[Rfam]
RNA sequence: CCGGCUGUUCCAUCAGCCGUUCCCUACCCAGACAUGCUGAGCCGGCAACAGCUUGGUGUGAAGCUCUGGGGACAAUGUAACCGCCGAUUUUCGGUACGCCAACCCGCGAGGGACAGCGGAAUCUGCCAGCACAAGGGCGGAGAGGGAC
Numbered sequence: 001c002c003g004g005c006u007g008u009u010c011c012a013u014c015a016g017c018c019g020u021u022c023c024c025u026a027c028c029c030a031g032a033c034a035u036g037c038u039g040a041g042c043c044g045g046c047a048a049c050a051g052c053u054u055g056g057u058g059u060g061a062a063g064c065u066c067u068g069g070g071g072a073c074a075a076u077g078u079a080a081c082c083g084c085c086g087a088u089u090u091u092c093g094g095u096a097c098g099c100c101a102a103c104c105c106g107c108g109a110g111g112g113a114c115a116g117c118g119g120a121a122u123c124u125g126c127c128a129g130c131a132c133a134a135g136g137g138c139g140g141a142g143a144g145g146g147a148c
Stems, first nucleotide, its partner, number of pairs: 002019006028069005033060010044049001083095005097118003104111002122141006